[Rfam]
RNA sequence: AACGAAUGAGGCCUCCGAGUCCCUCCUCCUAAGGGAAGAUCUGCCUAUGGGGCGGGACCGAAGGGCCCUGGGGGAAACCCCUGGGCCUCCCGCGUUUGGAAAGGAGGGCCCGAAUCGUCCGUG
Numbered sequence: 001a002a003c004g005a006a007u008g009a010g011g012c013c014u015c016c017g018a019g020u021c022c023c024u025c026c027u028c029c030u031a032a033g034g035g036a037a038g039a040u041c042u043g044c045c046u047a048u049g050g051g052g053c054g055g056g057a058c059c060g061a062a063g064g065g066c067c068c069u070g071g072g073g074g075a076a077a078c079c080c081c082u083g084g085g086c087c088u089c090c091c092g093c094g095u096u097u098g099g100a101a102a103g104g105a106g107g108g109c110c111c112g113a114a115u116c117g118u119c120c121g122u123g
Base pairs, nucleotide, nucleotide: 003117004116011109012108013106014105015104016103019058020057021056022055023054025052027051028050029049033046034045035044063088064087065086066085067084068083070081071080072079073078089099090098